[Rfam]
RNA: TPP riboswitch aptamer (THI element)
Organism: Actinomycetospora sp. TBRC 11914
RNA sequence: AGUGCGUUCCACGGGAGUCCGGGAGACGGGCUGAGAGGGGACCUGGCCGGCCGAGCCGCCGGCGGUGGUCCCGACCGUCCGAACCUGAUCCGGGUCAUGCCGGCGCAGGGAAGCAGCGAGGUGUUCGCA
Number, nucleotide and partner (000 for none) at each position: 001a000002g000003u000004g000005c000006g117007u116008u115009c000010c113011a078012c077013g076014g075015g000016a000017g031018u030019c029020c028021g027022g000023g000024a000025g000026a000027c021028g020029g019030g018031c017032u000033g000034a000035g000036a000037g000038g072039g071040g070041a069042c068043c000044u000045g000046g000047c000048c000049g000050g000051c000052c000053g000054a000055g000056c000057c000058g000059c000060c000061g000062g000063c000064g000065g000066u000067g000068g042069u041070c040071c039072c038073g000074a000075c014076c013077g012078u011079c000080c000081g000082a000083a000084c109085c108086u107087g106088a000089u000090c103091c102092g101093g100094g000095u000096c000097a000098u000099g000100c093101c092102g091103g090104c000105g000106c087107a086108g085109g084110g000111a000112a000113g010114c000115a008116g007117c006118g000119a000120g000121g000122u000123g000124u000125u000126c000127g000128c000129a000